[Rfam]
RNA sequence: CCGUUUGUAUCACCAGACGACCCUAAGGCUCUGAAUAAAGCAGCGAGCCUGACAAUGUAACGAAGUUUGGCACUGUGCCAAACGGGAGCAGAACCGUGAGGGAAUGCUCCUCCUGAUAACCACGAAUUGGGUGAGUGC
Numbered sequence: 001c002c003g004u005u006u007g008u009a010u011c012a013c014c015a016g017a018c019g020a021c022c023c024u025a026a027g028g029c030u031c032u033g034a035a036u037a038a039a040g041c042a043g044c045g046a047g048c049c050u051g052a053c054a055a056u057g058u059a060a061c062g063a064a065g066u067u068u069g070g071c072a073c074u075g076u077g078c079c080a081a082a083c084g085g086g087a088g089c090a091g092a093a094c095c096g097u098g099a100g101g102g103a104a105u106g107c108u109c110c111u112c113c114u115g116a117u118a119a120c121c122a123c124g125a126a127u128u129g130g131g132u133g134a135g136u137g138c
Stems, first nucleotide, its partner, number of pairs: 002019006027049005065083006084110003088107001094101002112131006
A member of the RNA family "Group II catalytic intron D1-D4-7" from Vibrio campbellii, 138 nucleotides long. Taxonomically the source falls in Vibrio campbellii (Bacteria, Pseudomonadota, Vibrionaceae, Vibrio). Gene Ontology term of the family: Group II intron splicing. About the family: Group II introns are found in rRNA, tRNA and mRNA of organelles in fungi, plants and protists, and also in mRNA in bacteria.